A member of the RNA family "DUF3800-X RNA", 72 nucleotides long. It is one of the family's seed sequences.
RNA sequence: UGGUGAGUAAGUCCUUCCGAAAGGAUGAUGCCUGCGGACGCAGGAUGGGAGCGAGUAGGAAAGGGUUCACCA
Numbered sequence: 001u002g003g004u005g006a007g008u009a010a011g012u013c014c015u016u017c018c019g020a021a022a023g024g025a026u027g028a029u030g031c032c033u034g035c036g037g038a039c040g041c042a043g044g045a046u047g048g049g050a051g052c053g054a055g056u057a058g059g060a061a062a063g064g065g066u067u068c069a070c071c072a
Stems, first nucleotide, its partner, number of pairs: 001072006012065004016060003031044005